[Rfam]
RNA sequence: UCACCGAAGCGGGGGUACCGCCAGCUUUCCGGCGGUUGAGACAGACCCUUCGAACCUGAUCCGGUUGAGACCGGCGUAGGGAAGCUUCGCAGCUUGCGCC
Numbered sequence: 001u002c003a004c005c006g007a008a009g010c011g012g013g014g015g016u017a018c019c020g021c022c023a024g025c026u027u028u029c030c031g032g033c034g035g036u037u038g039a040g041a042c043a044g045a046c047c048c049u050u051c052g053a054a055c056c057u058g059a060u061c062c063g064g065u066u067g068a069g070a071c072c073g074g075c076g077u078a079g080g081g082a083a084g085c086u087u088c089g090c091a092g093c094u095u096g097c098g099c100c
Stems, first nucleotide, its partner, number of pairs: 006088005011049004016043001017036005055080004061074004
Record summary: The family of this 100-nucleotide RNA sequence from Luteimonas gilva is "TPP riboswitch aptamer (THI element)". The organism belongs to Luteimonas, within Bacteria. Vitamin B(1) in its active form thiamin pyrophosphate (TPP) is an essential coenzyme that is synthesised by coupling of pyrimidine and thiazole moieties in bacteria. The match comes from Rfam's covariance-model search (64 bits). The base pairs follow the family's consensus structure, which is taken from published work.